The family of this 117-nucleotide RNA sequence from Natranaerovirga pectinivora is "FMN riboswitch aptamer (RFN element)".
Rfam describes the family as follows. The RFN element is a highly conserved domain that is found frequently in the 5'-untranslated regions of prokaryotic mRNAs that encode for flavin mononucleotide (FMN) biosynthesis and transport proteins. This element is a metabolite-dependent riboswitch that directly binds FMN in the absence of proteins.
NCBI's taxonomy places the organism under Bacteria, Bacillota, Clostridia, Natranaerovirgaceae, Natranaerovirga.
Rfam links the family to the GO term FMN binding.
RNA sequence: AAUGACCUUCAGGGCAGGGUGUAAUUCCCGACCGGCGGUAACAGUCCGCGAACCAAUUAUGGUUGACUUGGUGCAAUUCCAAGACCGACAGUAAAGUCUGGAUGGAAGAAGGAUAAU
Dot-bracket structure: ..((.(((((......(((.......))).[[((((((.....[[))))..(((......)))...(((((.......)))))]])).(((....]]))).......))))).))..
Numbered sequence: 001a002a003u004g005a006c007c008u009u010c011a012g013g014g015c016a017g018g019g020u021g022u023a024a025u026u027c028c029c030g031a032c033c034g035g036c037g038g039u040a041a042c043a044g045u046c047c048g049c050g051a052a053c054c055a056a057u058u059a060u061g062g063u064u065g066a067c068u069u070g071g072u073g074c075a076a077u078u079c080c081a082a083g084a085c086c087g088a089c090a091g092u093a094a095a096g097u098c099u100g101g102a103u104g105g106a107a108g109a110a111g112g113a114u115a116a117u
Stems, first nucleotide, its partner, number of pairs: 003115002006112005017029003031097002033087002035049004044085002052063003067083005089100003